[Rfam]
RNA sequence: AUAGGCCAGGAUCGCCCUCCGUCAGCGCGUUGCGCCCACGGAGGCGAAGCUG
Dot-bracket structure: ...............(((((((..((((...))))..)))))))........

Shown here is a 52-nucleotide sequence from Celeribacter neptunius, a member of the family "ffh sRNA".
By type it is a small RNA.
The literature on the family includes a 2009 paper in BMC Genomics by Meyer et al., "Identification of candidate structured RNAs in the marine organism 'Candidatus Pelagibacter ubique'".
The family's consensus secondary structure is taken from published work.